[Rfam]
RNA sequence: UGGCGGGGGAGCACUGCAACGUGUGGAGCGUGCGGUUUAAUUGGAUUCAACGCCGGAAAACUCACCGGGGGCGACGGUUACAUGAAGGCCAAGCUGAUGACUUUGCCUGAUUUUCCGAGAGGUGGUGCAUGGCCGCCGUCAGUUCGUACCGUAAGGCGUUCUGUUAAGUCAGAUAACGAACGAGACCUCCGUCACCAUUUGCUAUUCUUCUCUCCGGAGGGGGAGCACUAUGGUGGUACCGCCACUGUUAAAGUGGAGGAAGGAGGGGGCAACGGUAGGUCAGUAUGCCCCGAAUCUCCCGGGCUACACGCGCGCUACAAAGGGCAGGACAAUGGGCUUCGACACCGAAAGGUGGAGGCAAUCCCGAAACCUGCUCGUAAUUCGGAUUGAGGGCUGCAAUUCGCCCUCAUGAAGCUGGAAUACGUAGUAAUCGCGGGUCAACAUCCCGCGGUGAAUAUGCCCCUGCUCCUUGCACACACCGCCCGUCAAACCACCUUAGUUGGGUCUGGACGAGGGUUUGUCUUCUGACACGCUCGAAUCUGGGUUCAGCGAGGAGGGUUAAGUCGUAACAAGGUAUCCGUAGGGGAACCUGCGGAUGGA
Numbered sequence: 001u002g003g004c005g006g007g008g009g010a011g012c013a014c015u016g017c018a019a020c021g022u023g024u025g026g027a028g029c030g031u032g033c034g035g036u037u038u039a040a041u042u043g044g045a046u047u048c049a050a051c052g053c054c055g056g057a058a059a060a061c062u063c064a065c066c067g068g069g070g071g072c073g074a075c076g077g078u079u080a081c082a083u084g085a086a087g088g089c090c091a092a093g094c095u096g097a098u099g100a101c102u103u104u105g106c107c108u109g110a111u112u113u114u115c116c117g118a119g120a121g122g123u124g125g126u127g128c129a130u131g132g133c134c135g136c137c138g139u140c141a142g143u144u145c146g147u148a149c150c151g152u153a154a155g156g157c158g159u160u161c162u163g164u165u166a167a168g169u170c171a172g173a174u175a176a177c178g179a180a181c182g183a184g185a186c187c188u189c190c191g192u193c194a195c196c197a198u199u200u201g202c203u204a205u206u207c208u209u210c211u212c213u214c215c216g217g218a219g220g221g222g223g224a225g226c227a228c229u230a231u232g233g234u235g236g237u238a239c240c241g242c243c244a245c246u247g248u249u250a251a252a253g254u255g256g257a258g259g260a261a262g263g264a265g266g267g268g269g270c271a272a273c274g275g276u277a278g279g280u281c282a283g284u285a286u287g288c289c290c291c292g293a294a295u296c297u298c299c300c301g302g303g304c305u306a307c308a309c310g311c312g313c314g315c316u317a318c319a320a321a322g323g324g325c326a327g328g329a330c331a332a333u334g335g336g337c338u339u340c341g342a343c344a345c346c347g348a349a350a351g352g353u354g355g356a357g358g359c360a361a362u363c364c365c366g367a368a369a370c371c372u373g374c375u376c377g378u379a380a381u382u383c384g385g386a387u388u389g390a391g392g393g394c395u396g397c398a399a400u401u402c403g404c405c406c407u408c409a410u411g412a413a414g415c416u417g418g419a420a421u422a423c424g425u426a427g428u429a430a431u432c433g434c435g436g437g438u439c440a441a442c443a444u445c446c447c448g449c450g451g452u453g454a455a456u457a458u459g460c461c462c463c464u465g466c467u468c469c470u471u472g473c474a475c476a477c478a479c480c481g482c483c484c485g486u487c488a489a490a491c492c493a494c495c496u497u498a499g500u501u502g503g504g505u506c507u508g509g510a511c512g513a514g515g516g517u518u519u520g521u522c523u524u525c526u527g528a529c530a531c532g533c534u535c536g537a538a539u540c541u542g543g544g545u546u547c548a549g550c551g552a553g554g555a556g557g558g559u560u561a562a563g564u565c566g567u568a569a570c571a572a573g574g575u576a577u578c579c580g581u582a583g584g585g586g587a588a589c590c591u592g593c594g595g596a597u598g599g600a
Base pairs, nucleotide, nucleotide: 001476002475003473004472005471007470008469009468010467011466012465013464016460017459020424021423022422023421024420025318027316028315029314030313031312032311033310034309035307036306041056042055043054044053065302066301067300068299069298070297071296075117076116077115080111087107088106089105091103092102093101121291122290124289125288126287127286130285131284132280133279134278135276136275137274138273142181143180144179145178146177147176149156150155160173161172162171163170187268188267189266190265192236193235194234195233196232197231198230202225203224206223207222208221209220210219211218212217239259240258242256243255244254245253246252322376323375324374325373326372327371328370334365335364336363339358340357343354344353345352346351383414388409389408390407391406392405393404394403430452431451432450433449434448435447436446437445479573481570484566485565487563489560490559491558492557495554496553499550500549501548502547503546504545505544506543507542508541509540510539514535515534516533517532519530520529521528522527575598576597577596578595579594580593581592582591583590584589